[Rfam]
The record is an 87-nucleotide sequence from Papaver somniferum, which matches "Small nucleolar RNA Z159/U59" in Rfam.
It scores 62 bits against the family's covariance model.
The base pairs follow the family's consensus structure, which was predicted with PFOLD.
The family's RNA type in Rfam is C/D-box small nucleolar RNA.
Its family is annotated with RNA processing and nucleolus in the Gene Ontology.
On this family, see Chen et al., Nucleic Acids Res 2003: "The high diversity of snoRNAs in plants: identification and comparative study of 120 snoRNA genes from Oryza sativa".
RNA sequence: GCCUCUGAUGAUGAUCACCAAAUAACUUUCGUUCUUCCAAGGUUUAUUAUCUAUGCGGAAAUUAAUGGAGACCUGAACUGAAGAGGC
Numbered sequence: 001g002c003c004u005c006u007g008a009u010g011a012u013g014a015u016c017a018c019c020a021a022a023u024a025a026c027u028u029u030c031g032u033u034c035u036u037c038c039a040a041g042g043u044u045u046a047u048u049a050u051c052u053a054u055g056c057g058g059a060a061a062u063u064a065a066u067g068g069a070g071a072c073c074u075g076a077a078c079u080g081a082a083g084a085g086g087c
Stems, first nucleotide, its partner, number of pairs: 003085004

The source organism's lineage runs through Eukaryota, Viridiplantae, Tracheophyta, Euphyllophyta and Papaver.